[Rfam]
RNA sequence: GGGCUAAUGAUGAGCUGGGUGUACUGAGAGUGAAUGAAAUGAGUCUCGAUAUGAUUACUCUGAAGUCU
Dot-bracket structure: (((((......(((.....(....(((((..............))))).....)...)))...)))))
RNA: Small Nucleolar RNA SNORD64